[Rfam]
This 87-nucleotide RNA sequence from Saccharothrix tamanrassetensis belongs to the Rfam family "ZMP/ZTP riboswitch aptamer (pfl RNA motif)". A search with the family's covariance model found it, with a score of 46 bits. NCBI's taxonomy places the organism under Bacteria, Actinomycetota, Pseudonocardiales, Pseudonocardiaceae, Saccharothrix.
RNA sequence: GGCGGCGUUCGCGACUGGCGUGACGAGGGUGGGACCGACCACCGGGGAGCGACGAGCCGGCUCGCACCGCGCGCCUGGGUGCCACGG
Numbered sequence: 001g002g003c004g005g006c007g008u009u010c011g012c013g014a015c016u017g018g019c020g021u022g023a024c025g026a027g028g029g030u031g032g033g034a035c036c037g038a039c040c041a042c043c044g045g046g047g048a049g050c051g052a053c054g055a056g057c058c059g060g061c062u063c064g065c066a067c068c069g070c071g072c073g074c075c076u077g078g079g080u081g082c083c084a085c086g087g
Base pairs, nucleotide, nucleotide: 003059004058005057006056008054009052010051011050012049015046016045017075018074019073020072021071029042030041031040032039064082065081066080067079068078